[Rfam]
RNA sequence: AGCAUUCAUGGCGAUGGGGUUCGCCUGCCGCUCCGCACGCGCGUAGCUGAUGACUCCUACAUCUCG
Numbered sequence: 001a002g003c004a005u006u007c008a009u010g011g012c013g014a015u016g017g018g019g020u021u022c023g024c025c026u027g028c029c030g031c032u033c034c035g036c037a038c039g040c041g042c043g044u045a046g047c048u049g050a051u052g053a054c055u056c057c058u059a060c061a062u063c064u065c066g
Stems, first nucleotide, its partner, number of pairs: 010025004016057006030047003
Shown here is a 66-nucleotide RNA from Granulicella mallensis, a member of the family "Fluoride riboswitch aptamer (crcB RNA motif)". Gene Ontology terms of the family: positive regulation of gene expression and response to fluoride. The organism belongs to Granulicella mallensis, within Bacteria. It scores 38 bits against the family's covariance model.